The family of this 108-nucleotide sequence from Oryza sativa is "Small nucleolar RNA snoR97". It is annotated as an H/ACA-box small nucleolar RNA. Lineage of the source: Eukaryota > Embryophyta > commelinids > Oryzoideae > Oryza sativa. For this family Rfam cites "Experimental RNomics: identification of 140 candidates for small non-messenger RNAs in the plant Arabidopsis thaliana" (Marker et al., Curr Biol, 2002).
[Rfam]
RNA sequence: UAAGUUUCUGUUUUGUGUGUAGGCUGAAAAAGCUCGGAGAUUGUGUGUUGACAUCAGCUUCGUCUCUUUAUGUCUGUGAGAUGGGAGUUAAAUGACAGCACGAAAUUC
Numbered sequence: 001u002a003a004g005u006u007u008c009u010g011u012u013u014u015g016u017g018u019g020u021a022g023g024c025u026g027a028a029a030a031a032g033c034u035c036g037g038a039g040a041u042u043g044u045g046u047g048u049u050g051a052c053a054u055c056a057g058c059u060u061c062g063u064c065u066c067u068u069u070a071u072g073u074c075u076g077u078g079a080g081a082u083g084g085g086a087g088u089u090a091a092a093u094g095a096c097a098g099c100a101c102g103a104a105a106u107u108c
Base pairs, nucleotide, nucleotide: 044102045101046100047099048098049097050096056089057088058087059086060085061084063081064080065079066078